RNA: glmS glucosamine-6-phosphate activated ribozyme aptamer
Organism: Desulfosporosinus sp. I2
Nucleotides: 163
Stems, first nucleotide, its partner, number of pairs: 020047008056088005065077004089104005108153007121138007
Number, partner (000 for none) and nucleotide at each position: 001000a002000u003000u004000u005000a006000u007000a008000u009000u010000a011000a012000a013000g014000c015000g016000c017000c018000a019000g020047g021046a022045c023044c024043u025042u026041g027040a028000g029000a030000g031000a032000a033000g034000u035000u036000u037000u038000a039000c040027u041026c042025a043024a044023g045022g046021u047020c048000g049000a050000c051000g052000a053000g054000g055000a056088a057087g058086a059085g060084g061000g062000u063000u064000a065077u066076c067075g068074a069000a070000c071000a072000a073000u074068u075067c076066g077065g078000c079000g080000g081000a082000u083000c084060c085059c086058u087057c088056u089104c090103g091102g092101u093100g094000g095000c096000u097000u098000g099000u100093c101092a102091c103090c104089g105000u106000a107000a108153a109152g110151c111150u112149u113148g114147c115000u116000u117000a118000a119000a120000a121138c122137c123136g124135g125134g126133g127132a128000g129000u130000a131000a132127u133126u134125c135124u136123c137122g138121g139000g140000a141000c142000a143000a144000a145000g146000a147114g148113u149112a150111a151110g152109c153108u154000g155000a156000c157000a158000a159000g160000a161000c162000a163000a